The record is a 138-nucleotide RNA sequence from Notothenia coriiceps, which matches "Small nucleolar RNA SNORA29" in Rfam. The family has 26 seed sequences and 960 matches in Rfam 15.1. Its Rfam clan is "SNORA20 clan". Its family is annotated with nucleolus and RNA processing in the Gene Ontology. By type it is an H/ACA-box small nucleolar RNA. Pairs were carried over by alignment from the consensus structure, which was predicted with PFOLD. About the family: ACA29 is a member of the H/ACA class of snoRNA that guide the sites of modification of uridines to pseudouridines.
RNA sequence: AAUCCCAUUUCAGUACCUUCCACUCGCAUCACCAUGAAUGGACGGCUAUGCUAAUGGGAUAGAAAAACACUGUCAUGGUCUGAAGGUGUGGCUAGCUAACUGUGCACCCCACCAAAUAGUUUGACAGGAUAUAUCAGU
Numbered sequence: 001a002a003u004c005c006c007a008u009u010u011c012a013g014u015a016c017c018u019u020c021c022a023c024u025c026g027c028a029u030c031a032c033c034a035u036g037a038a039u040g041g042a043c044g045g046c047u048a049u050g051c052u053a054a055u056g057g058g059a060u061a062g063a064a065a066a067a068c069a070c071u072g073u074c075a076u077g078g079u080c081u082g083a084a085g086g087u088g089u090g091g092c093u094a095g096c097u098a099a100c101u102g103u104g105c106a107c108c109c110c111a112c113c114a115a116a117u118a119g120u121u122u123g124a125c126a127g128g129a130u131a132u133a134u135c136a137g138u
Base pairs, nucleotide, nucleotide: 004058005057006056007055016045017044019042072125073124074123075122090113091112